Background
The record is a 47-nucleotide RNA sequence, which matches "ssNA-helicase RNA" in Rfam. By type it is a small RNA. It is one of the family's seed sequences.
RNA sequence: UUCGCUAAGGCUAGUAUUACCUUAGCGAACAUCUGUCGCUUGUCGCA
Numbered sequence: 001u002u003c004g005c006u007a008a009g010g011c012u013a014g015u016a017u018u019a020c021c022u023u024a025g026c027g028a029a030c031a032u033c034u035g036u037c038g039c040u041u042g043u044c045g046c047a
Stems, first nucleotide, its partner, number of pairs: 001029010